[Rfam]
RNA sequence: UAUGCACACAAACCCAAGGUCCUGUCUAACAAGUGGCAGGCUCUUAAUGUGUCGUGCAAAAAAUAAUCAUUGAAUCUUGUCGCCUUUCUCUGAUGCUGUAGUGCCGUUGAAAGUGAAUCCAAGGUCCAACAAAC
Dot-bracket structure: ..(((((.........(((.((((((........)))))).))).........))))).............(.(((((.....(((((..((............))..))))).......))))).).......

A member of the RNA family "Small nucleolar RNA SNORA68" from Gadus morhua, 134 nucleotides long. From the family's description: U68 is a member of the H/ACA class of small nucleolar RNAs (snoRNAs) which act as guides in the the modification of uridines to pseudouridines. A reference for the family is Ganot et al. (1997), "The family of box ACA small nucleolar RNAs is defined by an evolutionarily conserved secondary structure and ubiquitous sequence elements essential for RNA accumulation", Genes Dev. Gene Ontology terms of the family: nucleolus and RNA processing.